[Rfam]
RNA sequence: GUAGAGUAUUCAGAAUUGCAAUAGCAAUACCAACCGAGUGCAGACACCGCGGUGGUAAAAUAAUACGGGUUUCAGGCCAAAAUAAACGUAUGCAA
Number, nucleotide and partner (000 for none) at each position: 001g000002u000003a000004g000005a000006g066007u065008a064009u063010u062011c000012a000013g000014a000015a028016u027017u026018g025019c024020a000021a000022u000023a000024g019025c018026a017027a016028u015029a056030c055031c054032a000033a000034c052035c051036g050037a000038g047039u046040g000041c000042a000043g089044a000045c000046a039047c038048c000049g000050c036051g035052g034053u000054g031055g030056u029057a000058a000059a000060a000061u000062a010063a009064u008065a007066c006067g000068g078069g077070u076071u075072u000073c000074a000075g071076g070077c069078c068079a000080a000081a000082a000083u000084a000085a000086a000087c000088g000089u043090a000091u000092g000093c000094a000095a000

Rfam assigns this 95-nucleotide RNA from Sphingobacterium wenxiniae to the family "SAM-I/IV (S-adenosyl methionine) riboswitch aptamer". Pairs were carried over by alignment from the consensus structure, which is taken from published work. Taxonomically the source falls in Sphingobacterium (Bacteria, Bacteroidota, Sphingobacteriia, Sphingobacteriaceae). A reference for the family is Trausch et al. (2014), "Structural basis for diversity in the SAM clan of riboswitches", PNAS. A search with the family's covariance model found it, with a score of 47 bits. Its Rfam clan is "SAM clan".